[Rfam]
RNA sequence: GGAUGCGAGGGUGAUCUGGCUGCGACAUCUGUCACCCCGUGGGUCACCAGGGUUGAUUUGGCUGAUCUGGCUGGUGAGGGGGGUGUCCCCCUCCCUCUCCACUCCAUGUGCGUCCCUCCCAAAACUGCACGCUUGGUCGAAGGGAAUGACUUUCCCCGAGAGAGACGCACCAUUCAUCAGUCAAGGUACAGGGAAGCUCUGCUCCCCUGCAAGAACCUCCAAAUAAUUGAUACUUAAAAACUGUUUGGAAUAACAGAGGCAGACAAAGUCCCCUCUCAAAAAAAAAUUAAAAUCUGACGGUGCACAGUAAGAUUU
Numbered sequence: 001g002g003a004u005g006c007g008a009g010g011g012u013g014a015u016c017u018g019g020c021u022g023c024g025a026c027a028u029c030u031g032u033c034a035c036c037c038c039g040u041g042g043g044u045c046a047c048c049a050g051g052g053u054u055g056a057u058u059u060g061g062c063u064g065a066u067c068u069g070g071c072u073g074g075u076g077a078g079g080g081g082g083g084u085g086u087c088c089c090c091c092u093c094c095c096u097c098u099c100c101a102c103u104c105c106a107u108g109u110g111c112g113u114c115c116c117u118c119c120c121a122a123a124a125c126u127g128c129a130c131g132c133u134u135g136g137u138c139g140a141a142g143g144g145a146a147u148g149a150c151u152u153u154c155c156c157c158g159a160g161a162g163a164g165a166c167g168c169a170c171c172a173u174u175c176a177u178c179a180g181u182c183a184a185g186g187u188a189c190a191g192g193g194a195a196g197c198u199c200u201g202c203u204c205c206c207c208u209g210c211a212a213g214a215a216c217c218u219c220c221a222a223a224u225a226a227u228u229g230a231u232a233c234u235u236a237a238a239a240a241c242u243g244u245u246u247g248g249a250a251u252a253a254c255a256g257a258g259g260c261a262g263a264c265a266a267a268g269u270c271c272c273c274u275c276u277c278a279a280a281a282a283a284a285a286a287u288u289a290a291a292a293u294c295u296g297a298c299g300g301u302g303c304a305c306a307g308u309a310a311g312a313u314u315u
Base pairs, nucleotide, nucleotide: 001105002104003103005099007097008096009095010094011093014092018090019089024087025086026085027084028083029082030081032079033078035074036073037070038069039068042067043066044065045064047061048060114167116164117163118162119136120135121134122133125131137159138158139157144155146153196269197268198267202262203261205259206258208256218249219248220247223245226242291315292314294311295310297308298307
A member of the RNA family "7SK RNA" from Calidris pygmaea, 315 nucleotides long.
On this family, see Wassarman and Steitz, Mol Cell Biol 1991: "Structural analyses of the 7SK ribonucleoprotein (RNP), the most abundant human small RNP of unknown function".
Its Rfam clan is "7SK clan".
The family has 45 seed sequences and 49,373 matches in Rfam 15.1.
The organism belongs to Calidris, within Eukaryota.
7SK was discovered as an abundant small nuclear RNA in the mid-70s but a possible function has only recently been suggested.